[Rfam]
RNA: Eukaryotic large subunit ribosomal RNA, nucleotides 1 to 440
Organism: Oryctes borbonicus
RNA sequence: CGACCUCAGAGCAGGUGAGAUUACCCGCCGAAUUUAAGCAUAUUACUAAGCGGAGGAAAAGAAACUAACUAGGAUUCCCUCAGUAGCGGCGAGCGAACAGGGAAUAGCCCAGCGCCGAAUCCCGCGGCCGGUCGACGGACGCCGGGAAAUGUGGUGUUAGGGAGGAUCCGCCAUCCUGAGAUCGUUCGGCGCGCCCAAGUCCUUCUUGAACGGGGCCACUUACCCAUAGAGGGUGCCAGGCCCGUAGUUGGCCGCCGUCGAUCGCGGGAGGAUCACUCCUCAGAGUCGGGUUGCUUGAGAGUGCAGCCCUAAGCGGGUGGUAAACUCCAUCUAAGGCUAAAUAUGACCACGAGACCGAUAGCGAACAAGUACCGUGAGGGAAAGUUGAAAAGAACUUUGAAGAGAGAGUUCAAGAGUACGUGAAACCGUUCAGGGGUAAA
Dot-bracket structure: .......................(((((......((....)).......)))).).........((....))...(((((.....((.....))....)))))..((((...(((((.((..(.((((............)))).)..)).)))))....((..(.(((..............(.(((((.((.((..(.((.((......)))))........(...)..((.......)).......)).))..))))).)......))))....))........(((((((........))))))).....(((((........)))))..)))).................................((....))...............((((....))))..................................